[Rfam]
RNA sequence: CGAAAAGGAACUUCUACUAAAACCGCACACGUCCUGUGUGCAACGUAGAAGUCACCGCAUCCUGCGGA
Numbered sequence: 001c002g003a004a005a006a007g008g009a010a011c012u013u014c015u016a017c018u019a020a021a022a023c024c025g026c027a028c029a030c031g032u033c034c035u036g037u038g039u040g041c042a043a044c045g046u047a048g049a050a051g052u053c054a055c056c057g058c059a060u061c062c063u064g065c066g067g068a
Stems, first nucleotide, its partner, number of pairs: 011051007026040005055067004

Background:
Rfam assigns this 68-nucleotide sequence from Salibacterium salarium to the family "Bacillaceae-1 RNA". Taxonomically the source falls in Salibacterium (Bacteria, Bacillati, Bacillota, Bacillaceae). By type it is a small RNA.